[Rfam]
Notes: The family of this 76-nucleotide RNA sequence from Sphingobium indicum is "Makes More Granules Regulator RNA (mmgR)". Clan: suhB sRNA clan. Rfam's curators write: SuhB later renamed mmgR (makes more granules regulator) was a putative non-coding RNA found multiple times in the Agrobacterium tumefaciens genome and related alpha-proteobacteria. Other non-coding RNAs uncovered in the same analysis include: speF, ybhL, metA, and serC.Several studies inSinorhizobium meliloti showed that suhB element is indeed a non-coding RNA:firstly it was detected on Northern blot and called Sm8RNA, secondly in an RNAseq study referred to as SmelC689.The mutant phenotype's (strain lacking the small RNA) cytoplasm contains higher content of polyhydroxybutyrate (PBH)storage granules than wild type strain. The sRNA is required to limit the PBH intracellular accumulation when the nitrogen-fixing Sinorhizobium meliloti is under condition of surplus carbon in relation to nitrogen. It scores 56 bits against the family's covariance model.
RNA sequence: AGAAAAGGCCUUUCAGGCAUCCUCUCCUAAAACUUUCAGGCCGGUCCUUCUGGGAUCGGCCUUUUUUUUGGUGAUG
Numbered sequence: 001a002g003a004a005a006a007g008g009c010c011u012u013u014c015a016g017g018c019a020u021c022c023u024c025u026c027c028u029a030a031a032a033c034u035u036u037c038a039g040g041c042c043g044g045u046c047c048u049u050c051u052g053g054g055a056u057c058g059g060c061c062u063u064u065u066u067u068u069u070g071g072u073g074a075u076g
Stems, first nucleotide, its partner, number of pairs: 008018004039061009